The family of this 59-nucleotide RNA sequence from Mycolicibacterium austroafricanum is "Actino-pnp RNA".
[Rfam]
RNA sequence: CGCGGUCUUCGGUAGUGGCUGCCGGAGAGACACUCCGGCAGCUUCGAUCGACGGCCGUC
Numbered sequence: 001c002g003c004g005g006u007c008u009u010c011g012g013u014a015g016u017g018g019c020u021g022c023c024g025g026a027g028a029g030a031c032a033c034u035c036c037g038g039c040a041g042c043u044u045c046g047a048u049c050g051a052c053g054g055c056c057g058u059c
Base pairs, nucleotide, nucleotide: 002058003057004056005055006054007053009051010050011049012048013047017043018042019041020040021039022038023037024036025035026034027033
Rfam's curators put it in the seed alignment. The base pairs follow the family's consensus structure, which is taken from published work.